[Rfam]
Shown here is a 133-nucleotide RNA from Menidia menidia, a member of the family "Small nucleolar RNA SNORA31".
The family's RNA type in Rfam is H/ACA-box small nucleolar RNA.
From the family's description: ACA31 (SNORA31) belongs to the H/ACA class of snoRNAs which are thought to guide the sites of modification of uridines to pseudouridines. ACA31 is predicted to guide the pseudouridylation of U3713 in 28S rRNA and U218 in 18S rRNA. This family includes the mouse homologue snoMBI-161.
The source organism's lineage runs through Eukaryota, Eumetazoa, Vertebrata, Acanthomorphata and Menidia.
Rfam links the family to the GO terms RNA processing and nucleolus.
Rfam 15.1 lists 2,094 matches to the family in 626 species.
A search with the family's covariance model found it, with a score of 78 bits.
RNA sequence: UCGCAUCCACUGAUAGACCUGAAGCAGACUUCAUUGGCUUCUGGGUUUGCACAGAGAUGCAAAACUGAGCUUUCCUCGCGCUUCCUGACUGCUCCAUCUCAUAGCGGCACAGAUUGAAUUGAGGAAUACAUUG
Numbered sequence: 001u002c003g004c005a006u007c008c009a010c011u012g013a014u015a016g017a018c019c020u021g022a023a024g025c026a027g028a029c030u031u032c033a034u035u036g037g038c039u040u041c042u043g044g045g046u047u048u049g050c051a052c053a054g055a056g057a058u059g060c061a062a063a064a065c066u067g068a069g070c071u072u073u074c075c076u077c078g079c080g081c082u083u084c085c086u087g088a089c090u091g092c093u094c095c096a097u098c099u100c101a102u103a104g105c106g107g108c109a110c111a112g113a114u115u116g117a118a119u120u121g122a123g124g125a126a127u128a129c130a131u132u133g
Stems, first nucleotide, its partner, number of pairs: 003060005011051002014049006022040004027035002073125006081116001085112003089107005